[Rfam]
RNA: MIR168 microRNA precursor family
Organism: Nyssa sinensis
RNA sequence: AUUGCGGCGGUCUCUAAUUCGCUUGGUGCAGGUCGGGAACUGGUUAAACCCGCCGGCGACAUCAUUUCUCAGUUGGAGGCUCUGUGUUGGGCGAGUUGGCUCCCGCCUUGCAUCAACUGAAUCGGAGACCGCGGUGAGA
Numbered sequence: 001a002u003u004g005c006g007g008c009g010g011u012c013u014c015u016a017a018u019u020c021g022c023u024u025g026g027u028g029c030a031g032g033u034c035g036g037g038a039a040c041u042g043g044u045u046a047a048a049c050c051c052g053c054c055g056g057c058g059a060c061a062u063c064a065u066u067u068c069u070c071a072g073u074u075g076g077a078g079g080c081u082c083u084g085u086g087u088u089g090g091g092c093g094a095g096u097u098g099g100c101u102c103c104c105g106c107c108u109u110g111c112a113u114c115a116a117c118u119g120a121a122u123c124g125g126a127g128a129c130c131g132c133g134g135u136g137a138g139a
Base pairs, nucleotide, nucleotide: 013126014125017122018121019120020119023116024115025114026113027112028111029110030109031108032107034105035104036103037102038101040099041098042097043096044095045094